[Rfam]
The record is a 183-nucleotide sequence from Calorimonas adulescens, which matches "6S / SsrS RNA" in Rfam. By type it is a non-coding RNA gene. From the family's description: E. coli 6S RNA was the first non coding RNA to be sequenced, but its function was unknown until recently. It consists of 184 nucleotides that fold into an extended hairpin structure with a large single-stranded internal bulge. The 6S RNA specifically associates with RNA polymerase holoenzyme containing the sigma70 specificity factor. This interaction represses expression from a sigma70-dependent promoter during stationary phase. 6S RNA homologs have recently been identified in most bacterial genomes. Many Gram-positive species have two copies of 6S RNA. In Bacillus subtilis, both copies appear to interact with RNA polymerase holoenzyme containing the housekeeping sigma factor and be expressed during different stages of growth. In many proteobacteria, 6S RNA may be processed from a transcript encoding homologs of the E. coli YgfA protein which is a putative 5-formyltetrahydrofolate cycloligase activity. A reference for the family is Wassarman and Storz (2000), "6S RNA regulates E. coli RNA polymerase activity", Cell.
RNA sequence: GUAACCCUGCAGUGUGCGGGAGUUGAGUGAGAUAUUGGGCCAACACCAAUAUAAAGGGAGCCCGGUCUCUGGCUGUGCAAACAUAGGCCUCCUUAGAGUGGAAAUGUGCGGCAGUCAGGAGGGCACCCACCUGUGAGAGAGCAGGUUCAACAACCACUCAAUGAGCGGCACUGUGGGGAGCUU
Numbered sequence: 001g002u003a004a005c006c007c008u009g010c011a012g013u014g015u016g017c018g019g020g021a022g023u024u025g026a027g028u029g030a031g032a033u034a035u036u037g038g039g040c041c042a043a044c045a046c047c048a049a050u051a052u053a054a055a056g057g058g059a060g061c062c063c064g065g066u067c068u069c070u071g072g073c074u075g076u077g078c079a080a081a082c083a084u085a086g087g088c089c090u091c092c093u094u095a096g097a098g099u100g101g102a103a104a105u106g107u108g109c110g111g112c113a114g115u116c117a118g119g120a121g122g123g124c125a126c127c128c129a130c131c132u133g134u135g136a137g138a139g140a141g142c143a144g145g146u147u148c149a150a151c152a153a154c155c156a157c158u159c160a161a162u163g164a165g166c167g168g169c170a171c172u173g174u175g176g177g178g179a180g181c182u183u
Stems, first nucleotide, its partner, number of pairs: 005178011017167002031154001033152001036149006056128003060124004067118001070117007083105002088101002091098001